The record is a 236-nucleotide RNA from Dictyoglomus thermophilum, which matches "Dictyoglomi-1 RNA" in Rfam.
RNA sequence: UGCCACAGGCAUCAAGGGGUCCGAAAGGCUCCCUGAUGUGCCUGACUGGGACUGAGUAAGUCUCAGGGGCCAAGGAAAGGUAAGGAGUAAAAUCCUUACUAAGUACUUGGAGGCCAGAAGGUAACAGGGGUAUUGGAAAAGCCCGGUACCUCUGUGAAAUCUGGUAAAACCCUGGGAUGAGAGGUCUCGGGAGGGUGCAAGGGAGAAGCUGAGUAGGGUCCGUUGAGCCUGUGGCA
Numbered sequence: 001u002g003c004c005a006c007a008g009g010c011a012u013c014a015a016g017g018g019g020u021c022c023g024a025a026a027g028g029c030u031c032c033c034u035g036a037u038g039u040g041c042c043u044g045a046c047u048g049g050g051a052c053u054g055a056g057u058a059a060g061u062c063u064c065a066g067g068g069g070c071c072a073a074g075g076a077a078a079g080g081u082a083a084g085g086a087g088u089a090a091a092a093u094c095c096u097u098a099c100u101a102a103g104u105a106c107u108u109g110g111a112g113g114c115c116a117g118a119a120g121g122u123a124a125c126a127g128g129g130g131u132a133u134u135g136g137a138a139a140a141g142c143c144c145g146g147u148a149c150c151u152c153u154g155u156g157a158a159a160u161c162u163g164g165u166a167a168a169a170c171c172c173u174g175g176g177a178u179g180a181g182a183g184g185u186c187u188c189g190g191g192a193g194g195g196u197g198c199a200a201g202g203g204a205g206a207a208g209c210u211g212a213g214u215a216g217g218g219u220c221c222g223u224u225g226a227g228c229c230u231g232u233g234g235c236a
Base pairs, nucleotide, nucleotide: 001236002235003234004233005232006231007230008229009228010227012226013225014224015223017221018220021217022216027210028209029205030204031203032202034201037199038198039197040196041195042194043193046190047189048188049187050186051185052184053183060178061177062176063175064174065173066172067171068170070110071109072108073107074106079100080099081098082097083096084095085094086093113165114164115163116162117161118160124155125154126153127152128151129150130149131148132147133146134145135144136143